This 68-nucleotide sequence from Coprobacter secundus belongs to the Rfam family "Bacteroidetes FopS (family of paralogous sRNAs)".
RNA sequence: AUGUUUUUUCAUAGUAUUAGAUUUAAGGUUUACAAAGAUUGGUUGUCGGGAGACAACCUUUUUUUAUU
Numbered sequence: 001a002u003g004u005u006u007u008u009u010c011a012u013a014g015u016a017u018u019a020g021a022u023u024u025a026a027g028g029u030u031u032a033c034a035a036a037g038a039u040u041g042g043u044u045g046u047c048g049g050g051a052g053a054c055a056a057c058c059u060u061u062u063u064u065u066a067u068u
Stems, first nucleotide, its partner, number of pairs: 041058007
Overview:
About the family: The RNA-binding protein RbpB and BTncRNA_FopS sRNA are involved in the post-transcription regulation of polysaccharide utilisation loci (PUL). FopS sRNAs function as post-transcriptional repressors by binding to the vicinity of the start codon of the first mRNA of target PUL polycistrons, typically corresponding to the cognate SusC homolog, impeding translation of the respective glycan transporter. Lineage of the source: Bacteria > Bacteroidota > Bacteroidia > Bacteroidales > Coprobacter secundus. The family's consensus secondary structure is taken from published work. Gene Ontology term of the family: sRNA-mediated gene silencing. Rfam 15.1 lists 822 matches to the family in 178 species.